This 102-nucleotide sequence from Melghirimyces thermohalophilus belongs to the Rfam family "Purine riboswitch aptamer". The match comes from Rfam's covariance-model search (82 bits).
RNA sequence: AUCAAUGAAUGACGGCAUUCUCAUAUAUGCCCGGGAAUAGGGCUCGGGCGUUUCUACCCGGGGACCAUAAAUCCCUGGACUAUGGGAAAUGCUUUCCGUAUG
Numbered sequence: 001a002u003c004a005a006u007g008a009a010u011g012a013c014g015g016c017a018u019u020c021u022c023a024u025a026u027a028u029g030c031c032c033g034g035g036a037a038u039a040g041g042g043c044u045c046g047g048g049c050g051u052u053u054c055u056a057c058c059c060g061g062g063g064a065c066c067a068u069a070a071a072u073c074c075c076u077g078g079a080c081u082a083u084g085g086g087a088a089a090u091g092c093u094u095u096c097c098g099u100a101u102g
Stems, first nucleotide, its partner, number of pairs: 018088008029049007058078007